The record is a 331-nucleotide RNA from Ailuropoda melanoleuca, which matches "7SK RNA" in Rfam. The source organism's lineage runs through Eukaryota, Metazoa, Craniata, Dipnotetrapodomorpha and Ailuropoda. Rfam 15.1 lists 49,373 matches to the family in 668 species. Its Rfam clan is "7SK clan". The family's consensus secondary structure is taken from published work. The match comes from Rfam's covariance-model search (340 bits). The family's RNA type in Rfam is non-coding RNA gene.
RNA sequence: GGAUGUGAGGGUGAUCUGGCUGCAACAUCUGUCACCCCAUUGAUCGCCAGGGUUGAGUCAGCUGAUCUGGAUGGGUAGGCGUGUGUCCCCUUCCUCCCUCACCGCUCCGUGUGUGUCCCUCCCAAAGCUGCGUGCUUGGUCGAAGAGGUUGACCUUCCCCAAUAGAGGAGGACCGUUCUUUGGUCACGGGUAUAUGAGUAGCUGUGCUUCCUUGCUAGAACCUCCGAACGAGCUCUCAAGGUCCCUUUGUAGGAGAAUAUAGGGUAGUCAAGCUUCUAAGACUCCAGACACAACCAAAUGAGGCGCUGCACAUGGCAGUCUGCCUUUCUUU
Number, nucleotide and partner (000 for none) at each position: 001g108002g107003a106004u000005g102006u101007g100008a099009g098010g097011g096012u000013g093014a092015u000016c000017u000018g090019g089020c000021u000022g000023c000024a000025a086026c085027a084028u083029c000030u081031g080032u079033c078034a000035c074036c073037c070038c069039a068040u000041u000042g067043a066044u065045c064046g062047c061048c000049a000050g000051g000052g000053u000054u000055g000056a000057g000058u000059c000060a000061g047062c046063u000064g045065a044066u043067c042068u039069g038070g037071a000072u000073g036074g035075g000076u000077a000078g033079g032080c031081g030082u000083g028084u027085g026086u025087c000088c000089c019090c018091u000092u014093c013094c000095u000096c011097c010098c009099u008100c007101a006102c005103c000104g000105c000106u003107c002108c001109g000110u000111g000112u000113g000114u000115g000116u171117c170118c168119c167120u166121c165122c139123c138124a137125a136126a000127g135128c134129u000130g000131c000132g000133u000134g128135c127136u125137u124138g123139g122140u162141c000142g160143a000144a000145g000146a000147g158148g157149u000150u000151g000152a000153c000154c000155u000156u000157c148158c147159c000160c142161a000162a140163u000164a000165g121166a120167g119168g118169a000170g117171g116172a000173c000174c000175g000176u000177u000178c000179u000180u000181u000182g000183g000184u000185c000186a000187c000188g000189g000190g000191u000192a000193u000194a000195u000196g000197a000198g000199u000200a000201g273202c272203u271204g000205u000206g000207c267208u266209u000210c264211c263212u262213u261214g260215c000216u000217a000218g000219a000220a000221c000222c255223u254224c253225c252226g000227a000228a250229c249230g248231a247232g246233c000234u000235c000236u000237c000238a000239a000240g000241g000242u000243c000244c000245c000246u232247u231248u230249g229250u228251a000252g225253g224254a223255g222256a000257a000258u000259a000260u214261a213262g212263g211264g210265u000266a208267g207268u000269c000270a000271a203272g202273c201274u000275u000276c000277u000278a000279a000280g000281a000282c000283u000284c000285c000286a000287g000288a000289c000290a000291c000292a000293a000294c000295c000296a331297a330298a329299u000300g326301a325302g324303g323304c322305g319306c318307u317308g316309c315310a000311c000312a000313u000314g000315g309316c308317a307318g306319u305320c000321u000322g304323c303324c302325u301326u300327u000328c000329u298330u297331u296